[Rfam]
RNA sequence: CUACACCCUCCGUCCUAAAAUAUAAGAACGUUUUUCAUACUACACUUGUAUGAAAAACGUUCUUAUAUUUUAGGACAGAGGGAGUAC
Numbered sequence: 001c002u003a004c005a006c007c008c009u010c011c012g013u014c015c016u017a018a019a020a021u022a023u024a025a026g027a028a029c030g031u032u033u034u035u036c037a038u039a040c041u042a043c044a045c046u047u048g049u050a051u052g053a054a055a056a057a058c059g060u061u062c063u064u065a066u067a068u069u070u071u072a073g074g075a076c077a078g079a080g081g082g083a084g085u086a087c
Stems, first nucleotide, its partner, number of pairs: 003085002007081004013075005019069022

About this RNA: This 87-nucleotide sequence from Aegilops tauschii belongs to the Rfam family "MIR1120/MIR1122 microRNA precursor family". For this family Rfam cites "Cloning and characterization of microRNAs from wheat (Triticum aestivum L.)" (Yao et al., Genome Biol, 2007). Taxonomically the source falls in Aegilops tauschii (Eukaryota, Streptophyta, Liliopsida, Triticeae). The base pairs follow the family's consensus structure, which was predicted with RNAalifold. Gene Ontology terms of the family: miRNA-mediated post-transcriptional gene silencing and RISC complex.